[Rfam]
RNA sequence: GAUUAAGAUUGAGGUGCAGGAAUCAUGAGUAGUUAUGGGGAGCUAGCCAGCCUUGAACCAUAAUAAAAGGGGUUACUGCCGAAAUCUAGUUUGCUUGGCUAAGCUAAUUAGGUUGGGUCUGUACUUAAUAGGUACAGAACUGUCACUAGUCUUUCUAGUGGGGUGCUAUCUUAUCG
Numbered sequence: 001g002a003u004u005a006a007g008a009u010u011g012a013g014g015u016g017c018a019g020g021a022a023u024c025a026u027g028a029g030u031a032g033u034u035a036u037g038g039g040g041a042g043c044u045a046g047c048c049a050g051c052c053u054u055g056a057a058c059c060a061u062a063a064u065a066a067a068a069g070g071g072g073u074u075a076c077u078g079c080c081g082a083a084a085u086c087u088a089g090u091u092u093g094c095u096u097g098g099c100u101a102a103g104c105u106a107a108u109u110a111g112g113u114u115g116g117g118u119c120u121g122u123a124c125u126u127a128a129u130a131g132g133u134a135c136a137g138a139a140c141u142g143u144c145a146c147u148a149g150u151c152u153u154u155c156u157a158g159u160g161g162g163g164u165g166c167u168a169u170c171u172u173a174u175c176g
Stems, first nucleotide, its partner, number of pairs: 006171004011166001016079004021074004032064007083114009093104002115141002118138008143161007
RNA: Lysine riboswitch aptamer
Organism: Orenia metallireducens